[Rfam]
RNA sequence: UGUUAAUACUCUGUGCAUGUUCGUAUAAUUUCGGGAAUAGGGCCCGUAAGUUUCUACCGAGCUACCGUAAAUGGCUUGACUAUGAACAAUGGGAUAGAACUA
Numbered sequence: 001u002g003u004u005a006a007u008a009c010u011c012u013g014u015g016c017a018u019g020u021u022c023g024u025a026u027a028a029u030u031u032c033g034g035g036a037a038u039a040g041g042g043c044c045c046g047u048a049a050g051u052u053u054c055u056a057c058c059g060a061g062c063u064a065c066c067g068u069a070a071a072u073g074g075c076u077u078g079a080c081u082a083u084g085a086a087c088a089a090u091g092g093g094a095u096a097g098a099a100c101u102a
Stems, first nucleotide, its partner, number of pairs: 018088008029049002032046004058078007